Annotation: Shown here is a 129-nucleotide RNA from Clostridium celatum, a member of the family "Ribosomal protein L10 leader". About the family: This family is a putative r-protein leader autoregulatory structure found in B. subtilis and other low-GC Gram-positive bacteria. It is located in the 5' untranslated regions of mRNAs encoding ribosomal proteins L10 and L12 (rplJ-rplL). A Rho-independent transcription terminator structure that is probably involved in regulation is included at the 3' end.
Nucleotides: 129
Stems, first nucleotide, its partner, number of pairs: 028060006034043003089114010
Number, partner (000 for none) and nucleotide at each position: 001000a002000a003000a004000a005000a006000g007000a008000a009000a010000a011000u012000a013000c014000u015000g016000u017000u018000u019000c020000c021000g022000u023000a024000g025000a026000c027000a028060g029059u030058a031057g032056g033055u034043g035042c036041c037000g038000a039000a040000a041036g042035g043034u044000u045000u046000a047000a048000a049000g050000u051000g052000a053000u054000c055033g056032c057031c058030u059029a060028c061000c062000u063000a064000g065000g066000a067000u068000a069000u070000a071000c072000u073000a074000g075000a076000u077000a078000u079000g080000u081000g082000a083000u084000u085000a086000u087000u088000u089114g090113g091112u092111c093110u094109u095108c096107c097106u098105g099000u100000g101000u102000c103000u104000a105098u106097g107096g108095g109094a110093a111092g112091a113090c114089c115000u116000u117000u118000c119000u120000u121000a122000a123000u124000a125000u126000a127000u128000a129000u